[Rfam]
RNA sequence: UAAUAAAUCUGUCAAUAGCUGCAUGAUACGACUGCUUGCAGGCAGUAUCAUGCAGCUAUUUGACGGAUAAACACACAUGAGCAUGUAGGGAGAUAGCCCGGAAUGCGAAUGUGUGUUGCGGAUUCGAGAGUUCGAAGAACGUAGAAGCCGCAUUUAUUA
Numbered sequence: 001u002a003a004u005a006a007a008u009c010u011g012u013c014a015a016u017a018g019c020u021g022c023a024u025g026a027u028a029c030g031a032c033u034g035c036u037u038g039c040a041g042g043c044a045g046u047a048u049c050a051u052g053c054a055g056c057u058a059u060u061u062g063a064c065g066g067a068u069a070a071a072c073a074c075a076c077a078u079g080a081g082c083a084u085g086u087a088g089g090g091a092g093a094u095a096g097c098c099c100g101g102a103a104u105g106c107g108a109a110u111g112u113g114u115g116u117u118g119c120g121g122a123u124u125c126g127a128g129a130g131u132u133c134g135a136a137g138a139a140c141g142u143a144g145a146a147g148c149c150g151c152a153u154u155u156a157u158u159a
Stems, first nucleotide, its partner, number of pairs: 001159007008067004014060016030043001032041003071116008081106004088099003119150003123146003130140004
Rfam assigns this 159-nucleotide RNA sequence from Roseburia sp. CAG:50 to the family "Clostridiales-1 RNA". The family has 194 seed sequences and 1,172 matches in Rfam 15.1. The family's consensus secondary structure is taken from published work. A search with the family's covariance model found it, with a score of 117 bits.